[Rfam]
RNA sequence: ACUUCAUCAAGAGCGGUCGAGGGAACGGCCCUGCGACACCGCGGCAACCACCCAUCCGGGCAGGUGCCAAAUCCGUCCGGCGUGACCGCGCCGGGAAGAUGAGGC
Dot-bracket structure: .(((((((....(((((...(((.[[[[)))......)))))((((.((.((.....))...))))))...(]]]]((((((......))))))..)))))))).
Shown here is a 105-nucleotide RNA from Stackebrandtia nassauensis, a member of the family "SAM riboswitch aptamer (S box leader)".
Rfam's curators put it in the seed alignment.
Its family is annotated with regulation of gene expression in the Gene Ontology.
The SAM riboswitch is found upstream of a number of genes which code for proteins involved in methionine or cysteine biosynthesis in Gram-positive bacteria.